[Rfam]
RNA sequence: CUGCAUGUUGCACCCCGGGCUUCUCUGAAGUAUGCGAUGAUGAAAAAAGCCCCAAUGCUCGUGCUAUAUUUAUGCCGUUUAGUGUUGCAGGUUUGCUUAGUUUCUUUAACAGCUUAUUUGUGUCAAAAUAACGGCCAGAUUU
Numbered sequence: 001c002u003g004c005a006u007g008u009u010g011c012a013c014c015c016c017g018g019g020c021u022u023c024u025c026u027g028a029a030g031u032a033u034g035c036g037a038u039g040a041u042g043a044a045a046a047a048a049g050c051c052c053c054a055a056u057g058c059u060c061g062u063g064c065u066a067u068a069u070u071u072a073u074g075c076c077g078u079u080u081a082g083u084g085u086u087g088c089a090g091g092u093u094u095g096c097u098u099a100g101u102u103u104c105u106u107u108a109a110c111a112g113c114u115u116a117u118u119u120g121u122g123u124c125a126a127a128a129u130a131a132c133g134g135c136c137a138g139a140u141u142u
Stems, first nucleotide, its partner, number of pairs: 003064005010058002017052005022046001024043002074135006083125002086122006095113003
RNA: small nucleolar RNA snoR134